[Rfam]
RNA sequence: CGAUGAGGUAGAGGUCGCAGUUUUUAAUAGUAAAGCAACGGAAAUGCAGAGAACAUUGAGGAUGUUGCUUGAAAGGAAAAAUUGCCGAAGUUUAGAUCACUUCUCGGUUGAUUUAAGCUGGGGCUGUCUCCGAACAGGAACAGAACUGUCACAUCAUGCAAGUGAUGUGAAGAGCUAUCUUCACG
Numbered sequence: 001c002g003a004u005g006a007g008g009u010a011g012a013g014g015u016c017g018c019a020g021u022u023u024u025u026a027a028u029a030g031u032a033a034a035g036c037a038a039c040g041g042a043a044a045u046g047c048a049g050a051g052a053a054c055a056u057u058g059a060g061g062a063u064g065u066u067g068c069u070u071g072a073a074a075g076g077a078a079a080a081a082u083u084g085c086c087g088a089a090g091u092u093u094a095g096a097u098c099a100c101u102u103c104u105c106g107g108u109u110g111a112u113u114u115a116a117g118c119u120g121g122g123g124c125u126g127u128c129u130c131c132g133a134a135c136a137g138g139a140a141c142a143g144a145a146c147u148g149u150c151a152c153a154u155c156a157u158g159c160a161a162g163u164g165a166u167g168u169g170a171a172g173a174g175c176u177a178u179c180u181u182c183a184c185g
Stems, first nucleotide, its partner, number of pairs: 006180006017085009033070008089119011120147002124143004129138002149170007

A member of the RNA family "Lysine riboswitch aptamer" from Priestia megaterium, 185 nucleotides long. Gene Ontology term of the family: lysine biosynthetic process. Lineage of the source: Bacteria > Bacillota > Bacilli > Bacillaceae > Priestia megaterium. The base pairs follow the family's consensus structure, which is taken from published work.